[Rfam]
RNA sequence: GAAUGAAAUGAUGAAGACAUUAUAUUUGAUGUUUAAUAUGAUAGCAUUCAAGUAUUAGCUCUAGCUGAUCAUUC
Numbered sequence: 001g002a003a004u005g006a007a008a009u010g011a012u013g014a015a016g017a018c019a020u021u022a023u024a025u026u027u028g029a030u031g032u033u034u035a036a037u038a039u040g041a042u043a044g045c046a047u048u049c050a051a052g053u054a055u056u057a058g059c060u061c062u063a064g065c066u067g068a069u070c071a072u073u074c
Base pairs, nucleotide, nucleotide: 002073003072004071005070028048033044034043
Rfam assigns this 74-nucleotide RNA from Ipomoea nil to the family "Small nucleolar RNA Z102/R77".
Rfam links the family to the GO terms RNA processing and nucleolus.
It is annotated as a C/D-box small nucleolar RNA.
It scores 45 bits against the family's covariance model.
Its Rfam clan is "SNORD44 clan".
For this family Rfam cites "The high diversity of snoRNAs in plants: identification and comparative study of 120 snoRNA genes from Oryza sativa" (Chen et al., Nucleic Acids Res, 2003).